Rfam assigns this 65-nucleotide RNA from Mucilaginibacter sp. to the family "Fluoride riboswitch aptamer (crcB RNA motif)". The organism belongs to Mucilaginibacter, within Bacteria. The base pairs follow the family's consensus structure, which is taken from published work.
RNA sequence: UGUUUCCAAGGAAAUGGUGUCUUCCUACUUAACCGCCCUAAAAAGCUGAUGGCGCCUACAUUAAU
Numbered sequence: 001u002g003u004u005u006c007c008a009a010g011g012a013a014a015u016g017g018u019g020u021c022u023u024c025c026u027a028c029u030u031a032a033c034c035g036c037c038c039u040a041a042a043a044a045g046c047u048g049a050u051g052g053c054g055c056c057u058a059c060a061u062u063a064a065u
Stems, first nucleotide, its partner, number of pairs: 010025004016056006035046002